[Rfam]
Shown here is an 89-nucleotide RNA sequence from Plasmodium malariae, a member of the family "Selenocysteine transfer RNA". Its Rfam clan is "tRNA clan".
RNA sequence: GCACCGAUGAGUUAGCAUGGUUGCUAAGUGUGACUUCAAAUCAUUUGGCGUAAGUUCUUUGCGCAGAGGUUCGAUUCCUCCUUCGGUGC
Numbered sequence: 001g002c003a004c005c006g007a008u009g010a011g012u013u014a015g016c017a018u019g020g021u022u023g024c025u026a027a028g029u030g031u032g033a034c035u036u037c038a039a040a041u042c043a044u045u046u047g048g049c050g051u052a053a054g055u056u057c058u059u060u061g062c063g064c065a066g067a068g069g070u071u072c073g074a075u076u077c078c079u080c081c082u083u084c085g086g087u088g089c
Base pairs, nucleotide, nucleotide: 001089002088003087004086005085006084007083009081012027013026014025015024016023017022028046030044031043032042033041048064049063050062051061052060066080067079068078069077

Record summary:
The base pairs follow the family's consensus structure, which is taken from published work.